RNA sequence: GGGGAUGUAGCUCAGCGGGAGAGUGCUUGCUUUGCAUGCAAGAUCAACCCCUGGGAUCAACCCCCAGGAUCAACCCCCAGCAUCUCCA
Dot-bracket structure: (((((((..((((.......)))).(((((.......)))))........(((((....................)))))))))))).
RNA: tRNA
Organism: Chaetorhynchus papuensis